[Rfam]
Nucleotides: 145
Stems, first nucleotide, its partner, number of pairs: 009136001011134003015130003021126002026121009037110011049097002053093001055092009
Number, partner (000 for none) and nucleotide at each position: 001000c002000c003000a004000a005000g006000g007000a008000a009136g010000u011134g012133g013132a014000a015130g016129a017128a018000a019000g020000a021126g022125a023000a024000u025000g026121u027120c028119u029118a030117a031116g032115a033114g034113c035000a036000g037110u038109g039108g040107g041106a042105a043104u044103g045102g046101g047100a048000a049097c050096a051000u052000g053093a054000a055092g056091g057090a058089a059088a060087g061086c062085a063084u064000g065000a066000a067000c068000u069000a070000u071000g072000u073000u074000u075000u076000u077000u078000u079000u080000c081000u082000g083000a084063a085062u086061g087060u088059u089058u090057u091056c092055c093053u094000g095000u096050u097049g098000c099000c100047u101046c102045u103044c104043a105042u106041u107040c108039c109038u110037a111000c112000g113034g114033u115032u116031c117030u118029u119028a120027g121026g122000u123000g124000c125022u126021c127000c128017u129016u130015c131000c132013u133012c134011u135000u136009c137000c138000u139000u140000u141000g142000g143000c144000c145000u

The record is a 145-nucleotide sequence from Miscanthus lutarioriparius, which matches "MIR2118 microRNA precursor family" in Rfam. The match comes from Rfam's covariance-model search (123 bits). For this family Rfam cites "Characterization and expression profiles of miRNAs in rice seeds" (Xue et al., Nucleic Acids Res, 2009).